[Rfam]
RNA sequence: UCUUCUUUAUGAUGAGAUACAUUAGUUAUCCCUGUCAGAUUAUAACACUUGUUAUAUUAACUGUUGAGAAAAAAUACCUCUGAAAAAAAA
Numbered sequence: 001u002c003u004u005c006u007u008u009a010u011g012a013u014g015a016g017a018u019a020c021a022u023u024a025g026u027u028a029u030c031c032c033u034g035u036c037a038g039a040u041u042a043u044a045a046c047a048c049u050u051g052u053u054a055u056a057u058u059a060a061c062u063g064u065u066g067a068g069a070a071a072a073a074a075u076a077c078c079u080c081u082g083a084a085a086a087a088a089a090a
Stems, first nucleotide, its partner, number of pairs: 001090001003088002006085002
A member of the RNA family "Small nucleolar RNA R38" from Penicillium egyptiacum, 90 nucleotides long. About the family: snoR38 is a C/D box small nucleolar RNA conserved across yeast, human, Arabidopsis and rice. It is encoded in the intron of elongation factor-1 gamma in both pombe and cerevisiae. snoR38 guides the methylation of 2'-O-ribose sites in 28S rRNA. Rfam links the family to the GO terms RNA processing and nucleolus.